[Rfam]
RNA sequence: AGAUAGUCCCGGGAAACCGGGUAAAGGUCGGAUUCUUUCCGGAGAGUCCCGCUCCUUCAGGUGAACGAUCUCGGUUGUUUCUCUGAAGGCAUGAUCACCCCGUCCGAUGCGGAAGUUCGUGCUUCCGUCGAACGCGAAAGUCGGACGGCGGCCAUGAGUCGCAACGCAAAGCCGCGGCAAGUGGAGUUAGCGAGAAGAGACUAGGCUUUGGUUUCUUCAAGUGAAGCGGUCACCAAUCAGGUGUGGUAGUUACCGUAAAAAAUCCGGAUUGAUUCGAGGCCCCGAGCGCCGACAUGGGCGCAGAGACCAGUACUCUUCGGAGUACAGGUUUCAAACGAGGCCUUGAGUGAGAUCGUGAAAGUUCGCCGUCGGGCGAAUGGAAGCGAAAAGUCGACCCCAAGCUGAAAAGCGAAGGGUCGAGUUGUUAAAAAAUGACCUGAGAGCAUGAGGCGAGACCCGUAGCGCAGGGCAAAACUUCCACGGGCAACCAUGAGAUCGGCUCUGUAAAAAAGGAGAGGGAGUUCAUGAACAGCAACCCCCACUUCCAGUGGAUCGAAGGCACGCCGCGAGGCGCCCCGACGAUUCGCCGAGAAGCCUCAGCUCGAAAUCAUCAGGAGUGAUCCAGAUGACGGUCCUGCCAUGAGACCGCAACGAGAGCAUGUCGCAUCGAAUGGACUCGGGGAGUCGGCAGCUUGCCCCACGGAUGAGCGCCUAAUGCCGGCAUUCGGGAACGAGCGCGUGGCGAACGCC
Numbered sequence: 001a002g003a004u005a006g007u008c009c010c011g012g013g014a015a016a017c018c019g020g021g022u023a024a025a026g027g028u029c030g031g032a033u034u035c036u037u038u039c040c041g042g043a044g045a046g047u048c049c050c051g052c053u054c055c056u057u058c059a060g061g062u063g064a065a066c067g068a069u070c071u072c073g074g075u076u077g078u079u080u081c082u083c084u085g086a087a088g089g090c091a092u093g094a095u096c097a098c099c100c101c102g103u104c105c106g107a108u109g110c111g112g113a114a115g116u117u118c119g120u121g122c123u124u125c126c127g128u129c130g131a132a133c134g135c136g137a138a139a140g141u142c143g144g145a146c147g148g149c150g151g152c153c154a155u156g157a158g159u160c161g162c163a164a165c166g167c168a169a170a171g172c173c174g175c176g177g178c179a180a181g182u183g184g185a186g187u188u189a190g191c192g193a194g195a196a197g198a199g200a201c202u203a204g205g206c207u208u209u210g211g212u213u214u215c216u217u218c219a220a221g222u223g224a225a226g227c228g229g230u231c232a233c234c235a236a237u238c239a240g241g242u243g244u245g246g247u248a249g250u251u252a253c254c255g256u257a258a259a260a261a262a263u264c265c266g267g268a269u270u271g272a273u274u275c276g277a278g279g280c281c282c283c284g285a286g287c288g289c290c291g292a293c294a295u296g297g298g299c300g301c302a303g304a305g306a307c308c309a310g311u312a313c314u315c316u317u318c319g320g321a322g323u324a325c326a327g328g329u330u331u332c333a334a335a336c337g338a339g340g341c342c343u344u345g346a347g348u349g350a351g352a353u354c355g356u357g358a359a360a361g362u363u364c365g366c367c368g369u370c371g372g373g374c375g376a377a378u379g380g381a382a383g384c385g386a387a388a389a390g391u392c393g394a395c396c397c398c399a400a401g402c403u404g405a406a407a408a409g410c411g412a413a414g415g416g417u418c419g420a421g422u423u424g425u426u427a428a429a430a431a432a433u434g435a436c437c438u439g440a441g442a443g444c445a446u447g448a449g450g451c452g453a454g455a456c457c458c459g460u461a462g463c464g465c466a467g468g469g470c471a472a473a474a475c476u477u478c479c480a481c482g483g484g485c486a487a488c489c490a491u492g493a494g495a496u497c498g499g500c501u502c503u504g505u506a507a508a509a510a511a512g513g514a515g516a517g518g519g520a521g522u523u524c525a526u527g528a529a530c531a532g533c534a535a536c537c538c539c540c541a542c543u544u545c546c547a548g549u550g551g552a553u554c555g556a557a558g559g560c561a562c563g564c565c566g567c568g569a570g571g572c573g574c575c576c577c578g579a580c581g582a583u584u585c586g587c588c589g590a591g592a593a594g595c596c597u598c599a600g601c602u603c604g605a606a607a608u609c610a611u612c613a614g615g616a617g618u619g620a621u622c623c624a625g626a627u628g629a630c631g632g633u634c635c636u637g638c639c640a641u642g643a644g645a646c647c648g649c650a651a652c653g654a655g656a657g658c659a660u661g662u663c664g665c666a667u668c669g670a671a672u673g674g675a676c677u678c679g680g681g682g683a684g685u686c687g688g689c690a691g692c693u694u695g696c697c698c699c700a701c702g703g704a705u706g707a708g709c710g711c712c713u714a715a716u717g718c719c720g721g722c723a724u725u726c727g728g729g730a731a732c733g734a735g736c737g738c739g740u741g742g743c744g745a746a747c748g749c750c
Base pairs, nucleotide, nucleotide: 008021009020010019011018012017026053027052028051030049031048032047033046034045035044036043037042063080064079065078066077067076068075100148101147102146103145104144105143106142111126112125113124114123115122117137118136119135120134121133152184153183154182155181158178159177160176161175162174168209169208170207171206172205173204194218195217196216197215198214199213200212201211226256227255228254229253231243232242233241234240245437246436247435249433286301287300288299289298290297306329307328308327310325311324312323313322314321315320351396353394354393355392361378362377363376364375365374366373401410402409403408441603442602443601447598448597449596450595464505465504466503467502468501469500477495478494479492480491514543515542517540518539519538521536522535523534548587549586550585551584552583553582554581555580558577559576562573563572564571565570608629609628610627611626612625614623615622616621630648631647632646633645634644638674639673640672652669653668654667657665684722685721686720687719688718689717690716691709692708696703697702735749736748737747
This 750-nucleotide RNA belongs to the Rfam family "MISL RNA". It is annotated as a small RNA.